A member of the RNA family "antisense RNA of dnaA mRNA" from Cohnella candida, 81 nucleotides long.
The organism belongs to Cohnella, within Bacteria.
Rfam links the family to the GO term regulation of mRNA stability.
The family's consensus secondary structure was predicted with RNAfold.
For this family Rfam cites "Identification and characterization of a cis-encoded antisense RNA associated with the replication process of Salmonella enterica serovar Typhi" (Dadzie et al., PLoS One, 2013).
RNA sequence: CCUCGUGUUCGGAUUGUUCUCCAAAAUGUAGUGUCCGAUCGCGUGCAUCAAGUGCGUUUUGCCGAGACCUACGCCUCCAUA
Numbered sequence: 001c002c003u004c005g006u007g008u009u010c011g012g013a014u015u016g017u018u019c020u021c022c023a024a025a026a027u028g029u030a031g032u033g034u035c036c037g038a039u040c041g042c043g044u045g046c047a048u049c050a051a052g053u054g055c056g057u058u059u060u061g062c063c064g065a066g067a068c069c070u071a072c073g074c075c076u077c078c079a080u081a
Stems, first nucleotide, its partner, number of pairs: 004043004009038005016032003021028001052077001054075001056074002061072001